[Rfam]
RNA sequence: UCAAGUCCCGCGGGAGAGUCCGGCCUCGGCCGGCGCCGAAGGCGCAACACUGCCCGGAAUCGCUCAGGCAAAAGGACCGCGGGAAUAAC
Numbered sequence: 001u002c003a004a005g006u007c008c009c010g011c012g013g014g015a016g017a018g019u020c021c022g023g024c025c026u027c028g029g030c031c032g033g034c035g036c037c038g039a040a041g042g043c044g045c046a047a048c049a050c051u052g053c054c055c056g057g058a059a060u061c062g063c064u065c066a067g068g069c070a071a072a073a074g075g076a077c078c079g080c081g082g083g084a085a086u087a088a089c
Base pairs, nucleotide, nucleotide: 006084007083008082009081010080011079012078013077020033021032022031023030035069036068037067038065039064042063043062044061048056